[Rfam]
This 138-nucleotide RNA sequence from Pomacea canaliculata belongs to the Rfam family "Small nucleolar RNA SNORD10". Rfam 15.1 lists 433 matches to the family in 306 species. Rfam links the family to the GO terms nucleolus and RNA processing. The family's consensus secondary structure was predicted with WAR. On this family, see Huttenhofer et al., EMBO J 2001: "RNomics: an experimental approach that identifies 201 candidates for novel, small, non-messenger RNAs in mouse".

RNA sequence: GUAAUAUGAUGACAUCAUGCGUGUCAUUUGAGCAUCUUUUGGUGGAUUUGGUGUGCAAGUCCUUGCAAGCGUUCUGCUAGCCUGGACUUGGGCACCACACCUGCCAUGGUGUGAAUGAUUGCUGUGAAGUCUGAUUAC
Dot-bracket structure: ((((........................................(.(.((((.........................................)))).).).................................))))